The record is a 121-nucleotide sequence from Salvia splendens, which matches "U5 spliceosomal RNA" in Rfam.
By type it is a spliceosomal small nuclear RNA.
About the family: U5 RNA is a component of both types of known spliceosome. The precise function of this molecule is unknown, though it is known that the 5' loop is required for splice site selection and p220 binding, and that both the 3' stem-loop and the Sm site are important for Sm protein binding and cap methylation.
[Rfam]
RNA sequence: AGCUGCGCGUCGAGCACAUAGCGAACUAUUCUUUCGCCUUUUACUAAAGAAUAUCGUGUGUUCGUUGCUACUCAAGCAGUAUAUGCCAUUUUUUGGAGGUUGUUUUAUUUACAAUAAAACA
Numbered sequence: 001a002g003c004u005g006c007g008c009g010u011c012g013a014g015c016a017c018a019u020a021g022c023g024a025a026c027u028a029u030u031c032u033u034u035c036g037c038c039u040u041u042u043a044c045u046a047a048a049g050a051a052u053a054u055c056g057u058g059u060g061u062u063c064g065u066u067g068c069u070a071c072u073c074a075a076g077c078a079g080u081a082u083a084u085g086c087c088a089u090u091u092u093u094u095g096g097a098g099g100u101u102g103u104u105u106u107a108u109u110u111a112c113a114a115u116a117a118a119a120c121a
Stems, first nucleotide, its partner, number of pairs: 003079004008067002011064008027053008102120006
The base pairs follow the family's consensus structure, which is taken from published work. Rfam 15.1 lists 28,527 matches to the family in 2,489 species. The source organism's lineage runs through Eukaryota, eudicotyledons, Lamiales, Salviinae and core Calosphace. It scores 77 bits against the family's covariance model.